A member of the RNA family "ZMP/ZTP riboswitch aptamer (pfl RNA motif)" from Leifsonia sp. Leaf336, 99 nucleotides long. The base pairs follow the family's consensus structure, which is taken from published work.

RNA sequence: UGCUCACGUCGCGACUGGCGCUCAGAUGGUCACCAUCGGGGAGCGACUACGGUACCUCGAACGAACGGAUGGAUUCGGCCGCGCGCCUGGGUCGAUGCA
Numbered sequence: 001u002g003c004u005c006a007c008g009u010c011g012c013g014a015c016u017g018g019c020g021c022u023c024a025g026a027u028g029g030u031c032a033c034c035a036u037c038g039g040g041g042a043g044c045g046a047c048u049a050c051g052g053u054a055c056c057u058c059g060a061a062c063g064a065a066c067g068g069a070u071g072g073a074u075u076c077g078g079c080c081g082c083g084c085g086c087c088u089g090g091g092u093c094g095a096u097g098c099a
Stems, first nucleotide, its partner, number of pairs: 003052002008047005015040002017087005026036004076094005
Taxonomically the source falls in Leifsonia (Bacteria, Actinomycetota, Actinomycetes, Microbacteriaceae).